[Rfam]
Shown here is a 124-nucleotide sequence from Crypturellus soui, a member of the family "Small Cajal body specific RNA 23". Rfam's curators write: scaRNAs are a specific class of small nuclear RNAs which localise to the Cajal bodies and guide the modification of RNA polymerase II transcribed spliceosomal RNAs U1, U2, U4, U5 and U12. By type it is a small Cajal body RNA. Rfam 15.1 lists 399 matches to the family in 374 species.
Nucleotides: 124
Base pairs, nucleotide, nucleotide: 003053004052005051006050007049008048014042018040019039020038021037025032026031064120066118067117068116069115072110073109074108077106078105079104080103081102082101083100084099088093
Number, partner (000 for none) and nucleotide at each position: 001000g002000u003053g004052c005051u006050c007049a008048c009000a010000a011000g012000a013000a014042c015000g016000u017000u018040c019039a020038u021037c022000c023000u024000g025032c026031c027000g028000c029000g030000u031026g032025g033000c034000u035000g036000a037021g038020a039019u040018g041000g042014g043000a044000a045000a046000a047000u048008g049007u050006g051005a052004g053003c054000u055000a056000c057000a058000u059000c060000a061000c062000a063000a064120g065000u066118a067117u068116u069115g070000c071000c072110u073109u074108g075000g076000g077106a078105g079104u080103g081102u082101c083100c084099c085000a086000c087000u088093g089000c090000a091000g092000g093088c094000c095000c096000c097000a098000u099084g100083g101082g102081a103080c104079a105078c106077u107000a108074c109073a110072g111000u112000u113000u114000u115069c116068a117067a118066u119000a120064c121000a122000a123000c124000a